This 191-nucleotide RNA sequence from Hibiscus syriacus belongs to the Rfam family "U2 spliceosomal RNA". Pairs were carried over by alignment from the consensus structure, which is taken from published work. U2 is a small nuclear RNA (snRNA) component of the spliceosome (involved in pre-mRNA splicing). Clan: U2 clan. NCBI's taxonomy places the organism under Eukaryota, Tracheophyta, Euphyllophyta, malvids, Hibiscus.
[Rfam]
RNA sequence: GUAUCUUUCUUGGCCUUUUACAUAAGAUCAAGUGUAGAAUUUGUUCUUAUCAGUUAAUUUUGUUACGUGAGCCAAUGUUAUUAAGAUAUUAAAUUUAUCAGAGUAGCUUGGUACUGAGACUCAGGUUCACGAGCGUUCUACUAUAGCUUCGAGUUCAAAAUUGAACUUCAAUUGAGUUUUGAGUUUCAAUC
Numbered sequence: 001g002u003a004u005c006u007u008u009c010u011u012g013g014c015c016u017u018u019u020a021c022a023u024a025a026g027a028u029c030a031a032g033u034g035u036a037g038a039a040u041u042u043g044u045u046c047u048u049a050u051c052a053g054u055u056a057a058u059u060u061u062g063u064u065a066c067g068u069g070a071g072c073c074a075a076u077g078u079u080a081u082u083a084a085g086a087u088a089u090u091a092a093a094u095u096u097a098u099c100a101g102a103g104u105a106g107c108u109u110g111g112u113a114c115u116g117a118g119a120c121u122c123a124g125g126u127u128c129a130c131g132a133g134c135g136u137u138c139u140a141c142u143a144u145a146g147c148u149u150c151g152a153g154u155u156c157a158a159a160a161u162u163g164a165a166c167u168u169c170a171a172u173u174g175a176g177u178u179u180u181g182a183g184u185u186u187c188a189a190u191c
Stems, first nucleotide, its partner, number of pairs: 008027003012023001048065002051062002067081003071078002111144003115140002118137001125134003148183005154176005